[Rfam]
RNA sequence: CGUUGCGGAUUUGCUCACCGCAACGGGUGAGACCGGCACAGCAUAAACCGGUAGGGCGGGUUUG
Numbered sequence: 001c002g003u004u005g006c007g008g009a010u011u012u013g014c015u016c017a018c019c020g021c022a023a024c025g026g027g028u029g030a031g032a033c034c035g036g037c038a039c040a041g042c043a044u045a046a047a048c049c050g051g052u053a054g055g056g057c058g059g060g061u062u063u064g
Stems, first nucleotide, its partner, number of pairs: 001025008032052005
Shown here is a 64-nucleotide RNA sequence, a member of the family "D12-methyl RNA". The family's consensus secondary structure is taken from published work. By type it is a small RNA.